Shown here is a 94-nucleotide RNA from Colocasia esculenta, a member of the family "Small nucleolar RNA R64/Z200 family". It is annotated as a C/D-box small nucleolar RNA. Taxonomically the source falls in Colocasia (Eukaryota, Viridiplantae, Streptophytina, Mesangiospermae). For this family Rfam cites "Purified box C/D snoRNPs are able to reproduce site-specific 2'-O-methylation of target RNA in vitro" (Galardi et al., Mol Cell Biol, 2002).
RNA sequence: UUCUGGCUGUGAUGAAUUGUGAAACUUCUUCGCAUGUCAGACUUCAGAGGUAUAUAUGCCAAUGAGAAGAAAAUUUCAUUUUUCUGAGCUAGAU
Numbered sequence: 001u002u003c004u005g006g007c008u009g010u011g012a013u014g015a016a017u018u019g020u021g022a023a024a025c026u027u028c029u030u031c032g033c034a035u036g037u038c039a040g041a042c043u044u045c046a047g048a049g050g051u052a053u054a055u056a057u058g059c060c061a062a063u064g065a066g067a068a069g070a071a072a073a074u075u076u077c078a079u080u081u082u083u084c085u086g087a088g089c090u091a092g093a094u
Stems, first nucleotide, its partner, number of pairs: 002093006049060004